Shown here is a 97-nucleotide sequence from Streptomyces malaysiensis, a member of the family "Bacterial small signal recognition particle RNA". The source organism's lineage runs through Bacteria, Actinomycetota, Actinomycetes, Streptomycetaceae and Streptomyces. The base pairs follow the family's consensus structure, which is taken from published work. Clan: SRP clan. Rfam links the family to the GO terms signal recognition particle, plasma membrane targeting and SRP-dependent cotranslational protein targeting to membrane, signal sequence recognition.
RNA sequence: CGCAGCCCCUCACGUGGCGCUAUCUCACCGAACUCCCCCAGGGCCGGAAGGCAGCAAGGGUAAGUGGGCUCUGGCGGGUACGUGGGGGGCCCUUCGC
Numbered sequence: 001c002g003c004a005g006c007c008c009c010u011c012a013c014g015u016g017g018c019g020c021u022a023u024c025u026c027a028c029c030g031a032a033c034u035c036c037c038c039c040a041g042g043g044c045c046g047g048a049a050g051g052c053a054g055c056a057a058g059g060g061u062a063a064g065u066g067g068g069c070u071c072u073g074g075c076g077g078g079u080a081c082g083u084g085g086g087g088g089g090c091c092c093u094u095c096g097c
Stems, first nucleotide, its partner, number of pairs: 005090010015078001018076005024068005035060003043052003